[Rfam]
RNA sequence: AGGUGAUGUCUCCUUACCUUUAUCAAUGGAGGCACUCGGCUGUGCUGUGGGUGCGAACCUUAGACGCUUGUCGUCAGUAGCGCGGUGUGAGGGUGGGUUGAAUGCCCG
Numbered sequence: 001a002g003g004u005g006a007u008g009u010c011u012c013c014u015u016a017c018c019u020u021u022a023u024c025a026a027u028g029g030a031g032g033c034a035c036u037c038g039g040c041u042g043u044g045c046u047g048u049g050g051g052u053g054c055g056a057a058c059c060u061u062a063g064a065c066g067c068u069u070g071u072c073g074u075c076a077g078u079a080g081c082g083c084g085g086u087g088u089g090a091g092g093g094u095g096g097g098u099u100g101a102a103u104g105c106c107c108g
Stems, first nucleotide, its partner, number of pairs: 001019004007034007035091004039086008049060004063075004094108005

Description
Rfam assigns this 108-nucleotide RNA from Bacillus sp. SJS to the family "epsC RNA". NCBI's taxonomy places the organism under Bacteria, Bacillota, Bacilli, Bacillaceae, Bacillus.